The family of this 87-nucleotide sequence from Citrobacter freundii is "TrxA 5' UTR thermometer". Lineage of the source: Bacteria > Gammaproteobacteria > Enterobacterales > Citrobacter > Citrobacter freundii complex. A reference for the family is Righetti et al. (2016), "Temperature-responsive in vitro RNA structurome of Yersinia pseudotuberculosis", Proc Natl Acad Sci U S A. By type it is an RNA thermoregulator. The base pairs follow the family's consensus structure.
RNA sequence: AACCUUUAGUUGGUUAAUGCUACACCAACACACCAGGCUUUUUCCUGUGGAGUUAUUAUGAGCGAUAAAAUUAUUCACCUGACAGAC
Numbered sequence: 001a002a003c004c005u006u007u008a009g010u011u012g013g014u015u016a017a018u019g020c021u022a023c024a025c026c027a028a029c030a031c032a033c034c035a036g037g038c039u040u041u042u043u044c045c046u047g048u049g050g051a052g053u054u055a056u057u058a059u060g061a062g063c064g065a066u067a068a069a070a071u072u073a074u075u076c077a078c079c080u081g082a083c084a085g086a087c
Base pairs, nucleotide, nucleotide: 009066010065011064012063014061015060016059022053023052025050026049027048034047035046036045037044071086072085075082076081